[Rfam]
Nucleotides: 175
Stems, first nucleotide, its partner, number of pairs: 007169005017084004024077002034068006088116007096108004117143002120140008145160006
Number, partner (000 for none) and nucleotide at each position: 001000a002000g003000a004000c005000a006000g007169a008168g009167u010166a011165g012000a013000g014000g015000u016000u017084g018083c019082g020081u021000a022000a023000a024077u025076c026000a027000a028000g029000a030000g031000u032000a033000a034068c035067c036066u037065g038064c039063c040000g041000g042000a043000u044000g045000c046000c047000u048000c049000a050000g051000g052000g053000g054000g055000c056000a057000a058000g059000a060000g061000a062000a063039g064038g065037c066036g067035g068034g069000c070000g071000a072000a073000a074000g075000g076025g077024a078000g079000g080000c081020a082019c083018g084017c085000c086000g087000a088116a089115g090114g091113a092112a093111g094110a095000g096108a097107u098106g099105u100000c101000c102000u103000g104000a105099a106098c107097a108096u109000a110094u111093u112092u113091u114090c115089c116088u117143g118142g119000g120140c121139g122138c123137a124136g125135a126134g127133u128000g129000a130000a131000g132000a133127a134126u135125u136124c137123u138122g139121u140120g141000a142118c143117u144000g145160u146159c147158a148157u149156c150155c151000u152000u153000a154000u155150g156149g157148a158147u159146g160145g161000g162000g163000a164000g165011c166010u167009a168008c169007u170000a171000a172000a173000a174000c175000g

Rfam assigns this 175-nucleotide RNA from Clostridium sp. AM58-1XD to the family "Lysine riboswitch aptamer". For this family Rfam cites "Riboswitches Control Fundamental Biochemical Pathways in Bacillus subtilis and Other Bacteria" (Mandal et al., Cell, 2003). Lineage of the source: Bacteria > Bacillota > Clostridia > Eubacteriales > Clostridium. It scores 104 bits against the family's covariance model. Pairs were carried over by alignment from the consensus structure, which is taken from published work.